[Rfam]
Record summary
Shown here is an 85-nucleotide RNA sequence from Carpinus fangiana, a member of the family "Small nucleolar RNA Z122". It is annotated as a C/D-box small nucleolar RNA. Rfam 15.1 lists 822 matches to the family in 247 species.
RNA sequence: UUUGGGGAAUGAUGCCAAAAUUUGAAAAGAGUGACUGAAGCAUUAGCUCUGCUGAAUAUUAUUUGCACGUCAGUCUGACCCUAAA
Numbered sequence: 001u002u003u004g005g006g007g008a009a010u011g012a013u014g015c016c017a018a019a020a021u022u023u024g025a026a027a028a029g030a031g032u033g034a035c036u037g038a039a040g041c042a043u044u045a046g047c048u049c050u051g052c053u054g055a056a057u058a059u060u061a062u063u064u065g066c067a068c069g070u071c072a073g074u075c076u077g078a079c080c081c082u083a084a085a
Base pairs, nucleotide, nucleotide: 001085002084003083004082005081006080007079